[Rfam]
RNA sequence: UUCCUAUGCAUAUACCUCUUUGACAUGCUGCUUUAAAGAGGCAUAGGGCAUGGGAAAA
Numbered sequence: 001u002u003c004c005u006a007u008g009c010a011u012a013u014a015c016c017u018c019u020u021u022g023a024c025a026u027g028c029u030g031c032u033u034u035a036a037a038g039a040g041g042c043a044u045a046g047g048g049c050a051u052g053g054g055a056a057a058a
Base pairs, nucleotide, nucleotide: 001056002055003054004053005052006051007050008049009048011045012044013043015041016040017039018038019037020036021035022034